This 75-nucleotide sequence from Monodelphis domestica belongs to the Rfam family "U1A polyadenylation inhibition element (PIE)". Its family is annotated with regulation of mRNA polyadenylation in the Gene Ontology. The sequence is in the family's curated seed alignment. For this family Rfam cites "The NMR structure of the 38 kDa U1A protein - PIE RNA complex reveals the basis of cooperativity in regulation of polyadenylation by human U1A protein" (Varani et al., Nat Struct Biol, 2000). From the family's description: This family represents the U1A polyadenylation inhibition element (PIE). Rfam classes the family as a cis-regulatory element.

RNA sequence: CGCCUCAGCAUUGUACCCAGAGUCUGCCCUACAGACAUUGCACCUGGAGCUGUGGGGCGAAAAUAAAAUGUUGGA
Numbered sequence: 001c002g003c004c005u006c007a008g009c010a011u012u013g014u015a016c017c018c019a020g021a022g023u024c025u026g027c028c029c030u031a032c033a034g035a036c037a038u039u040g041c042a043c044c045u046g047g048a049g050c051u052g053u054g055g056g057g058c059g060a061a062a063a064u065a066a067a068a069u070g071u072u073g074g075a
Stems, first nucleotide, its partner, number of pairs: 006052004017047004022036005